[Rfam]
RNA sequence: CUACCGGAUGAGGGUUAUACCGCAGUGACUCAGCAUCGUACAUCGAAGGAGAGCGACGGCAGAUGUACGGACGGUGG
Numbered sequence: 001c002u003a004c005c006g007g008a009u010g011a012g013g014g015u016u017a018u019a020c021c022g023c024a025g026u027g028a029c030u031c032a033g034c035a036u037c038g039u040a041c042a043u044c045g046a047a048g049g050a051g052a053g054c055g056a057c058g059g060c061a062g063a064u065g066u067a068c069g070g071a072c073g074g075u076g077g
Stems, first nucleotide, its partner, number of pairs: 001077006009032004037069008